[Rfam]
RNA sequence: UUUGAAAAAGGCAAACUUGCUGAAAGGCAAGGACGCAAAGCCAAAGGGUCUAAGGUUCAUUGCUAUGUGGAGCUAAUGACAGCCUGGCUACCAAGC
Numbered sequence: 001u002u003u004g005a006a007a008a009a010g011g012c013a014a015a016c017u018u019g020c021u022g023a024a025a026g027g028c029a030a031g032g033a034c035g036c037a038a039a040g041c042c043a044a045a046g047g048g049u050c051u052a053a054g055g056u057u058c059a060u061u062g063c064u065a066u067g068u069g070g071a072g073c074u075a076a077u078g079a080c081a082g083c084c085u086g087g088c089u090a091c092c093a094a095g096c
Stems, first nucleotide, its partner, number of pairs: 003093002011036002016031006034082001039089004045085003048080003